[Rfam]
RNA sequence: GGGUCUUUGAUGACAAUCUUCCUUUCAUGAAGAGCGAUGGUGACAUAAAAAUCAUGCUCAAUAGGAUUACGCCGAGGCCC
Numbered sequence: 001g002g003g004u005c006u007u008u009g010a011u012g013a014c015a016a017u018c019u020u021c022c023u024u025u026c027a028u029g030a031a032g033a034g035c036g037a038u039g040g041u042g043a044c045a046u047a048a049a050a051a052u053c054a055u056g057c058u059c060a061a062u063a064g065g066a067u068u069a070c071g072c073c074g075a076g077g078c079c080c
Stems, first nucleotide, its partner, number of pairs: 001080004005074001008071002
The record is an 80-nucleotide RNA sequence from Jaculus jaculus, which matches "Small nucleolar RNA SNORD115" in Rfam. Rfam links the family to the GO terms RNA processing and nucleolus. For this family Rfam cites "Identification of brain-specific and imprinted small nucleolar RNA genes exhibiting an unusual genomic organization" (Cavaille et al., Proc Natl Acad Sci U S A, 2000). The base pairs follow the family's consensus structure, which was predicted with PFOLD. Taxonomically the source falls in Jaculus (Eukaryota, Chordata, Sarcopterygii, Dipnotetrapodomorpha).